[Rfam]
RNA sequence: CCCGAUAUUCUGCUAUCGGUAUCCUACCGGGACGUGCAUCAGGAGCAAUUCUUUUGUGCGAAGCUCCCGGGACAACGAAACCUGCGGGACGAUCAGUUCCGGAAGAGAAAACCGUGAGGGGAACUCAGCUCUGCCAGCAUCAGGGCGGUAAGGAGC
Number, nucleotide and partner (000 for none) at each position: 001c000002c019003c018004g017005a016006u015007a014008u000009u000010c000011u000012g000013c000014u007015a006016u005017c004018g003019g002020u000021a000022u000023c000024c000025u000026a000027c000028c069029g068030g067031g066032a065033c060034g059035u058036g057037c056038a055039u000040c000041a052042g051043g050044a049045g000046c000047a000048a000049u044050u043051c042052u041053u000054u000055u038056g037057u036058g035059c034060g033061a000062a000063g000064c000065u032066c031067c030068c029069g028070g000071g000072a000073c000074a000075a000076c000077g000078a000079a000080a000081c000082c000083u103084g000085c101086g100087g099088g098089a097090c096091g000092a000093u000094c000095a000096g090097u089098u088099c087100c086101g085102g000103a083104a000105g126106a125107g124108a000109a000110a000111a000112c119113c118114g000115u000116g000117a000118g113119g112120g000121g000122a000123a000124c107125u106126c105127a000128g000129c000130u000131c148132u147133g146134c145135c144136a000137g000138c000139a000140u000141c000142a000143g000144g135145g134146c133147g132148g131149u000150a000151a000152g000153g000154a000155g000156c000

Background: Rfam assigns this 156-nucleotide sequence from Desulfonema magnum to the family "Group II catalytic intron D1-D4-7". Rfam's curators write: Group II introns are found in rRNA, tRNA and mRNA of organelles in fungi, plants and protists, and also in mRNA in bacteria. For this family Rfam cites "The ins and outs of group II introns" (Bonen and Vogel, Trends Genet, 2001). The source organism's lineage runs through Bacteria, Thermodesulfobacteriota, Desulfobacteria, Desulfococcaceae and Desulfonema. A search with the family's covariance model found it, with a score of 114 bits.